The family of this 218-nucleotide RNA from Dysosmobacter welbionis is "RT-2 RNA". The organism belongs to Dysosmobacter, within Bacteria.
RNA sequence: AUGGGUUGAAAGCGGACGCGGUGCGCGUCCCGAACCCGUAUAAAAGGAGGAAUACUUCCCUGGCAGUCAUGCCUAAAACUGCCCACUGACGGCCAAACACGGACGCUGCUUGCAUGGCGGGGUAUUGCGCUAUCCCCGUUUCAUGUGUCGGGCCAAAGUAGUUUAUACGCGCACCUACAAGACAACUAUGCGGAGGGCGAAUACUUUUUAUUAUGACC
Numbered sequence: 001a002u003g004g005g006u007u008g009a010a011a012g013c014g015g016a017c018g019c020g021g022u023g024c025g026c027g028u029c030c031c032g033a034a035c036c037c038g039u040a041u042a043a044a045a046g047g048a049g050g051a052a053u054a055c056u057u058c059c060c061u062g063g064c065a066g067u068c069a070u071g072c073c074u075a076a077a078a079c080u081g082c083c084c085a086c087u088g089a090c091g092g093c094c095a096a097a098c099a100c101g102g103a104c105g106c107u108g109c110u111u112g113c114a115u116g117g118c119g120g121g122g123u124a125u126u127g128c129g130c131u132a133u134c135c136c137c138g139u140u141u142c143a144u145g146u147g148u149c150g151g152g153c154c155a156a157a158g159u160a161g162u163u164u165a166u167a168c169g170c171g172c173a174c175c176u177a178c179a180a181g182a183c184a185a186c187u188a189u190g191c192g193g194a195g196g197g198c199g200a201a202u203a204c205u206u207u208u209u210a211u212u213a214u215g216a217c218c
Base pairs, nucleotide, nucleotide: 004036005035006034007033062073063072064071065070081198082197083196084195086193087192088191090190091154092153093152094151097148098147099146100145105113106112116140117139118138119137120136121135122134158189159188160187161186162185164184165176
By type it is a small RNA.